[Rfam]
RNA sequence: UAAUAAAAAUCGAAAGGAAUGAUGGGUGGACAAUGGAUAACUAACCUAACUUUUUUACAAUUUGAAAUAAAAUAUUUCAGAUAAAAAAAUUAGGAUUAGUCUGCCCAUUUUUCUAUAUACGACAUAAGUAUGCUAACGAGCUGAAAGGCGAAAUUAGCUUAUUUAGGUAUGAAAAAAAUGCAAUGAAACUAAUCCUUCCAAAAAUAAUUUGGGGGGAUUUUUAU
Numbered sequence: 001u002a003a004u005a006a007a008a009a010u011c012g013a014a015a016g017g018a019a020u021g022a023u024g025g026g027u028g029g030a031c032a033a034u035g036g037a038u039a040a041c042u043a044a045c046c047u048a049a050c051u052u053u054u055u056u057a058c059a060a061u062u063u064g065a066a067a068u069a070a071a072a073u074a075u076u077u078c079a080g081a082u083a084a085a086a087a088a089a090u091u092a093g094g095a096u097u098a099g100u101c102u103g104c105c106c107a108u109u110u111u112u113c114u115a116u117a118u119a120c121g122a123c124a125u126a127a128g129u130a131u132g133c134u135a136a137c138g139a140g141c142u143g144a145a146a147g148g149c150g151a152a153a154u155u156a157g158c159u160u161a162u163u164u165a166g167g168u169a170u171g172a173a174a175a176a177a178a179u180g181c182a183a184u185g186a187a188a189c190u191a192a193u194c195c196u197u198c199c200a201a202a203a204a205u206a207a208u209u210u211g212g213g214g215g216g217a218u219u220u221u222u223a224u
Stems, first nucleotide, its partner, number of pairs: 016114004023107004029101003042098003046094002049091001051088004060082009125165003132158005191219011
Source information:
This 224-nucleotide RNA sequence from Bacillus sp. DNRA2 belongs to the Rfam family "Bacillus sRNA ncr1575". The source organism's lineage runs through Bacteria, Bacillati, Caryophanales, Bacillaceae and Bacillus. By type it is a small RNA.